[Rfam]
RNA sequence: UCGUGCUAAGCGGGGAGGUAGCGGUGCCCUGUACUCGCAAUCCGCUGUAGCGAGGCCGAAUCCCUUCUCGAGGUUGGUAGCCGUAAGGCCUGCCUUAAGUAAGUGGUGUUGACGUCUGGGUCCUACGCAACGGGAACCCACGAACCCUGUCAGGUCCGGAAGGAAGCAGCAGUAAGUGGAUCAUCUCGUGUGCCGUAGGGUCGCCUGGGCCGAGCUAACUGCUUAAGUAACGCUUAUGGCUGCCAUAUCGACAGAAGGUGCACGA
Number, nucleotide and partner (000 for none) at each position: 001u265002c264003g263004u262005g261006c260007u000008a000009a000010g056011c055012g030013g029014g028015g027016a000017g025018g000019u023020a000021g000022c000023g019024g000025u017026g000027c015028c014029c013030u012031g000032u000033a000034c054035u053036c052037g051038c050039a000040a000041u000042c000043c000044g000045c000046u000047g000048u000049a000050g038051c037052g036053a035054g034055g011056c010057c000058g000059a000060a000061u000062c000063c258064c257065u256066u255067c254068u253069c000070g000071a000072g249073g248074u247075u000076g000077g000078u242079a241080g240081c239082c238083g237084u236085a235086a234087g233088g000089c000090c000091u229092g228093c000094c000095u226096u225097a224098a223099g222100u221101a000102a000103g219104u218105g216106g215107u214108g000109u000110u000111g000112a000113c000114g210115u209116c208117u207118g206119g205120g204121u203122c199123c198124u197125a196126c195127g194128c190129a189130a000131c188132g187133g186134g185135a184136a181137c000138c179139c178140a177141c176142g000143a000144a000145c000146c000147c172148u171149g170150u169151c000152a000153g000154g000155u164156c163157c162158g000159g000160a000161a000162g157163g156164a155165a000166g000167c000168a000169g150170c149171a148172g147173u000174a000175a000176g141177u140178g139179g138180a000181u136182c000183a000184u135185c134186u133187c132188g131189u129190g128191u000192g000193c000194c127195g126196u125197a124198g123199g122200g000201u000202c000203g121204c120205c119206u118207g117208g116209g115210c114211c000212g000213a000214g107215c106216u105217a000218a104219c103220u000221g100222c099223u098224u097225a096226a095227g000228u092229a091230a000231c000232g000233c087234u086235u085236a084237u083238g082239g081240c080241u079242g078243c000244c000245a000246u000247a074248u073249c072250g000251a000252c000253a068254g067255a066256a065257g064258g063259u000260g006261c005262a004263c003264g002265a001
RNA: Bacterial large signal recognition particle RNA
Organism: Schinkia azotoformans